Shown here is a 63-nucleotide RNA from Anaerospora hongkongensis, a member of the family "Fluoride riboswitch aptamer (crcB RNA motif)". The source organism's lineage runs through Bacteria, Bacillati, Bacillota, Negativicutes and Anaerospora.
RNA sequence: GUAUAAGACGGCGAUGGAGUUCGCCUUAAACCCCGUGGAAACGGUAAUGACUCCUACCACAAU
Numbered sequence: 001g002u003a004u005a006a007g008a009c010g011g012c013g014a015u016g017g018a019g020u021u022c023g024c025c026u027u028a029a030a031c032c033c034c035g036u037g038g039a040a041a042c043g044g045u046a047a048u049g050a051c052u053c054c055u056a057c058c059a060c061a062a063u
Stems, first nucleotide, its partner, number of pairs: 010025004016054006033044004
It scores 54 bits against the family's covariance model. Pairs were carried over by alignment from the consensus structure, which is taken from published work.